[Rfam]
RNA sequence: UCCACCGCGAGGUGGAAUCUGAAGGAAGGCGGCGGCAAACCUCCGGCCCGAGGGUCACGAACUCCAAUAGAGGCUAGCAGCAGUUGGGUGAGUCAGCCAAACAUGACAAAGCCCUUGCUACCGAAGACUGCUGAAAGUAAAUGGAGCGGGUGCAUGGAGGGAAAGACAGCGUU
Numbered sequence: 001u002c003c004a005c006c007g008c009g010a011g012g013u014g015g016a017a018u019c020u021g022a023a024g025g026a027a028g029g030c031g032g033c034g035g036c037a038a039a040c041c042u043c044c045g046g047c048c049c050g051a052g053g054g055u056c057a058c059g060a061a062c063u064c065c066a067a068u069a070g071a072g073g074c075u076a077g078c079a080g081c082a083g084u085u086g087g088g089u090g091a092g093u094c095a096g097c098c099a100a101a102c103a104u105g106a107c108a109a110a111g112c113c114c115u116u117g118c119u120a121c122c123g124a125a126g127a128c129u130g131c132u133g134a135a136a137g138u139a140a141a142u143g144g145a146g147c148g149g150g151u152g153c154a155u156g157g158a159g160g161g162a163a164a165g166a167c168a169g170c171g172u173u
Stems, first nucleotide, its partner, number of pairs: 001016006028173004036165001040160006046151005062146005073138003079132006086114004092107004
Dot-bracket structure: ((((((....))))))...........((((....(...(((((((((((...........(((((......(((...((((((.((((..((((........))))...))))............))))))...)))...))))))))))...))))))....)....))))
RNA: Group II catalytic intron D1-D4-3
Organism: Paenalicyclobacillus mengziensis